[Rfam]
RNA sequence: AAAUUCUACUAGGGGCGCUGCAAAGCUGAGAAGAACCCUUUGAACCUGAACUAGUUAAAACUAGCGGAGGGAAGUAGGCGAAUAAUGAU
Numbered sequence: 001a002a003a004u005u006c007u008a009c010u011a012g013g014g015g016c017g018c019u020g021c022a023a024a025g026c027u028g029a030g031a032a033g034a035a036c037c038c039u040u041u042g043a044a045c046c047u048g049a050a051c052u053a054g055u056u057a058a059a060a061c062u063a064g065c066g067g068a069g070g071g072a073a074g075u076a077g078g079c080g081a082a083u084a085a086u087g088a089u
Stems, first nucleotide, its partner, number of pairs: 006077005011039004016033001017026003045070003051064004

This 89-nucleotide RNA from Ornithinibacillus bavariensis belongs to the Rfam family "TPP riboswitch aptamer (THI element)". Taxonomically the source falls in Ornithinibacillus (Bacteria, Bacillati, Bacilli, Caryophanales).